[Rfam]
RNA sequence: GAAAAGUGCCUUUCAGGCAUCCUCUCCCAAAAGACUUUCAAAGGCUGGCCUUCGGGCCGGCCUUUUUUUUGGCAAUU
Numbered sequence: 001g002a003a004a005a006g007u008g009c010c011u012u013u014c015a016g017g018c019a020u021c022c023u024c025u026c027c028c029a030a031a032a033g034a035c036u037u038u039c040a041a042a043g044g045c046u047g048g049c050c051u052u053c054g055g056g057c058c059g060g061c062c063u064u065u066u067u068u069u070u071g072g073c074a075a076u077u
Stems, first nucleotide, its partner, number of pairs: 008018004042063009
Description: A member of the RNA family "Makes More Granules Regulator RNA (mmgR)" from Novosphingobium aureum, 77 nucleotides long. It is annotated as a small RNA. NCBI's taxonomy places the organism under Bacteria, Pseudomonadati, Sphingomonadales, Sphingomonadaceae, Novosphingobium. A reference for the family is Corbino et al. (2005), "Evidence for a second class of S-adenosylmethionine riboswitches and other regulatory RNA motifs in alpha-proteobacteria", Genome Biol. The match comes from Rfam's covariance-model search (45 bits).